[Rfam]
RNA sequence: UUCACCCUACAAAUCUCGAGUUUCCUCAUUCUUCUUCAUCCAUGCUUCUCUCAUCUUCUUCCCGCCAUUACACGCAACAGAAAUCUUCAAGACCCACAACACUCGACGACGACACUGUCAAGAUCUCACCUCCUCACGAAGAUCCUCAAGAUUCUAGAGUUAUGAUCGAUUUUUUCUAGACUUAUUAUGAUUUUGUGUAAAUUUUGCCCUUUCGGCCAC
Dot-bracket structure: ................................................................((.......(((...((.((((...(...........................)..)))).)).......(((((((.........((....(((((..((.........))..)))))...))..))))))).......)))......))....